[Rfam]
RNA sequence: AUUAAUCUUUUGGGGUGCCAUAGCGCUGAGAUCAUACCCGUUGAACCUGUUGAGUUAGGACUUGCGCAGGGAGAAGAAUCACGACUUAU
Numbered sequence: 001a002u003u004a005a006u007c008u009u010u011u012g013g014g015g016u017g018c019c020a021u022a023g024c025g026c027u028g029a030g031a032u033c034a035u036a037c038c039c040g041u042u043g044a045a046c047c048u049g050u051u052g053a054g055u056u057a058g059g060a061c062u063u064g065c066g067c068a069g070g071g072a073g074a075a076g077a078a079u080c081a082c083g084a085c086u087u088a089u
Base pairs, nucleotide, nucleotide: 006077007076008075009074010073011040012039013038014037016034017026018025046070047069048068049067051064052063053062054061
TPP riboswitch aptamer (THI element): an 89-nucleotide RNA sequence from Aerococcus suis. It scores 55 bits against the family's covariance model.